RNA sequence: AUACUUACCUGGCAGGGAGGUACCAUGAUCAUGAAGGUGGUUUUCCCAGGGCGAGGCUUAUCCAUUGCAUUUCAAAUGUGCUGACCCCUGUGGUUUCCCCAAAUGUGGGAAACUCAACUGCAUAAUUUGUGGUAGUGGGGGACUGUGUUUGAGGUCUCCCCUG
Numbered sequence: 001a002u003a004c005u006u007a008c009c010u011g012g013c014a015g016g017g018a019g020g021u022a023c024c025a026u027g028a029u030c031a032u033g034a035a036g037g038u039g040g041u042u043u044u045c046c047c048a049g050g051g052c053g054a055g056g057c058u059u060a061u062c063c064a065u066u067g068c069a070u071u072u073c074a075a076a077u078g079u080g081c082u083g084a085c086c087c088c089u090g091u092g093g094u095u096u097c098c099c100c101a102a103a104u105g106u107g108g109g110a111a112a113c114u115c116a117a118c119u120g121c122a123u124a125a126u127u128u129g130u131g132g133u134a135g136u137g138g139g140g141g142a143c144u145g146u147g148u149u150u151g152a153g154g155u156c157u158c159c160c161c162u163g
Stems, first nucleotide, its partner, number of pairs: 012121004016046005022041005048089004053085001055082003059078003091116003094112003098108002137162006146153001
The record is a 163-nucleotide RNA from Marmota monax, which matches "U1 spliceosomal RNA" in Rfam.
U1 is a small nuclear RNA (snRNA) component of the spliceosome (involved in pre-mRNA splicing). Its 5' end forms complementary base pairs with the 5' splice junction, thus defining the 5' donor site of an intron. There are significant differences in sequence and secondary structure between metazoan and yeast U1 snRNAs, the latter being much longer (568 nucleotides as compared to 164 nucleotides in human). Nevertheless, secondary structure predictions suggest that all U1 snRNAs share a 'common core' consisting of helices I, II, the proximal region of III, and IV. This family does not contain the larger yeast sequences.
The family's consensus secondary structure is taken from published work.
A search with the family's covariance model found it, with a score of 129 bits.